A member of the RNA family "Alphaproteobacterial sRNA ar9" from Nitratireductor pacificus, 151 nucleotides long. A reference for the family is del Val et al. (2012), "A survey of sRNA families in alpha-proteobacteria", RNA Biol. By type it is a small RNA.
RNA sequence: AUAACAAGAGGAUGGAGCCAAAUUCAUCCUCACCACGCGGUCAAAGUCUUGGGAGGAUGCGGUCCAGGCGCGGUUAUACGCAGCCGCCGACAGUGAUACGGUUAAGGAUCGGACGCGUUGAGUUAGCAAGGCCUCGGCCUUGCAUUUUUUU
Number, nucleotide and partner (000 for none) at each position: 001a000002u000003a151004a150005c000006a148007a000008g000009a000010g000011g028012a027013u026014g025015g024016a023017g000018c000019c000020a000021a000022a000023u016024u015025c014026a013027u012028c011029c000030u000031c000032a000033c000034c000035a000036c117037g116038c115039g114040g000041u000042c000043a000044a000045a000046g058047u057048c056049u055050u000051g000052g000053g000054a000055g049056g048057a047058u046059g000060c000061g110062g109063u108064c107065c106066a000067g085068g084069c083070g081071c080072g079073g000074u000075u000076a000077u000078a000079c072080g071081c070082a000083g069084c068085c067086g000087c101088c100089g099090a000091c000092a000093g000094u000095g000096a000097u000098a000099c089100g088101g087102u000103u000104a000105a000106g065107g064108a063109u062110c061111g000112g000113a000114c039115g038116c037117g036118u000119u000120g000121a000122g000123u000124u000125a000126g143127c142128a141129a140130g139131g138132c137133c000134u000135c000136g000137g132138c131139c130140u129141u128142g127143c126144a000145u000146u000147u000148u006149u000150u004151u003